Source information: Rfam assigns this 121-nucleotide RNA sequence from Rummeliibacillus stabekisii to the family "SAM riboswitch aptamer (S box leader)". Rfam's curators write: The SAM riboswitch is found upstream of a number of genes which code for proteins involved in methionine or cysteine biosynthesis in Gram-positive bacteria. Lineage of the source: Bacteria > Bacillota > Caryophanales > Caryophanaceae > Rummeliibacillus.

RNA sequence: CUCUUAUUAAAAACCGUUGAGACGAGGGGUCUAAGAUACGGUGGCAAACCAAACUGAUAUUUAUCAGUUCAUGGGGCUCAACCUGAGCACAAAAUGUACAAAGUUUUGUGAACGAUAAGAG
Numbered sequence: 001c002u003c004u005u006a007u008u009a010a011a012a013a014c015c016g017u018u019g020a021g022a023c024g025a026g027g028g029g030u031c032u033a034a035g036a037u038a039c040g041g042u043g044g045c046a047a048a049c050c051a052a053a054c055u056g057a058u059a060u061u062u063a064u065c066a067g068u069u070c071a072u073g074g075g076g077c078u079c080a081a082c083c084u085g086a087g088c089a090c091a092a093a094a095u096g097u098a099c100a101a102a103g104u105u106u107u108g109u110g111a112a113c114g115a116u117a118a119g120a121g
Stems, first nucleotide, its partner, number of pairs: 001121008013042005021031003028083001043078003049074002052069005088110008

It scores 45 bits against the family's covariance model.